[Rfam]
RNA: Y RNA
RNA sequence: GGCUGGUCCAAGGGCAGAGGUGUUUACAACUAACUGAUCACAGCCAGUUACAGAUUUCUUUGUCCUUUUCCACGCCCACGGCUUCAUUUGACUAGCCUAA
Numbered sequence: 001g002g003c004u005g006g007u008c009c010a011a012g013g014g015c016a017g018a019g020g021u022g023u024u025u026a027c028a029a030c031u032a033a034c035u036g037a038u039c040a041c042a043g044c045c046a047g048u049u050a051c052a053g054a055u056u057u058c059u060u061u062g063u064c065c066u067u068u069u070c071c072a073c074g075c076c077c078a079c080g081g082c083u084u085c086a087u088u089u090g091a092c093u094a095g096c097c098u099a100a
Stems, first nucleotide, its partner, number of pairs: 001097008010089002014085001017079001019077002022075001029063002032060002